[Rfam]
The family of this 182-nucleotide RNA sequence from Erinaceus europaeus is "Small nucleolar RNA SNORA23". NCBI's taxonomy places the organism under Eukaryota, Bilateria, Eulipotyphla, Erinaceidae, Erinaceus.

RNA sequence: CUGGUCAUGUGUGCCCAGUUUGCAUCUGUGUCUGAGCGGCGUCUGCCUGCGUCUUGCAUUCAGACCCUGUUGUCCACACACACACCAUGGGGCCAAAAAAUAAGUCGGGGUCAUAGUACUGGCUUCGUGCUGUCUCUUUGGACAUACUCAUCACAAGUCAGCCUCCAAAUCCCCACACACAG
Numbered sequence: 001c002u003g004g005u006c007a008u009g010u011g012u013g014c015c016c017a018g019u020u021u022g023c024a025u026c027u028g029u030g031u032c033u034g035a036g037c038g039g040c041g042u043c044u045g046c047c048u049g050c051g052u053c054u055u056g057c058a059u060u061c062a063g064a065c066c067c068u069g070u071u072g073u074c075c076a077c078a079c080a081c082a083c084a085c086c087a088u089g090g091g092g093c094c095a096a097a098a099a100a101u102a103a104g105u106c107g108g109g110g111u112c113a114u115a116g117u118a119c120u121g122g123c124u125u126c127g128u129g130c131u132g133u134c135u136c137u138u139u140g141g142a143c144a145u146a147c148u149c150a151u152c153a154c155a156a157g158u159c160a161g162c163c164u165c166c167a168a169a170u171c172c173c174c175a176c177a178c179a180c181a182g
Stems, first nucleotide, its partner, number of pairs: 014089001029080003033076002036070004041065005048058003107174004119161006127154003131146003135142002
Notes: The members of this family belong to the H/ACA class of snoRNAs which are thought to guide the sites of modification of uridines to pseudouridines. This family includes human snoRNA ACA23 (SNORA23) and mouse snoMBI-1. ACA23 is predicted to guide the pseudouridylation of residue U3737 and U4331 of 28S rRNA. It is annotated as an H/ACA-box small nucleolar RNA.